[Rfam]
The record is a 76-nucleotide RNA from Culex quinquefasciatus, which matches "mir-263 microRNA precursor family" in Rfam.
RNA sequence: GUACACGUAAUGGCACUGGAAGAAUUCACGGGUAUGAUUUAAUAUCCCCGUGUUCUGGCAGUGGCAUCCCUGGUAC
Numbered sequence: 001g002u003a004c005a006c007g008u009a010a011u012g013g014c015a016c017u018g019g020a021a022g023a024a025u026u027c028a029c030g031g032g033u034a035u036g037a038u039u040u041a042a043u044a045u046c047c048c049c050g051u052g053u054u055c056u057g058g059c060a061g062u063g064g065c066a067u068c069c070c071u072g073g074u075a076c
Stems, first nucleotide, its partner, number of pairs: 001076004007070001010067003014063002017060002020056001022055002027052005

Pairs were carried over by alignment from the consensus structure, which was predicted with RNAalifold. On this family, see Li et al., BMC Genomics 2009: "Direct sequencing and expression analysis of a large number of miRNAs in Aedes aegypti and a multi-species survey of novel mosquito miRNAs". Taxonomically the source falls in Culex pipiens complex (Eukaryota, Opisthokonta, Eumetazoa, Altocrustacea).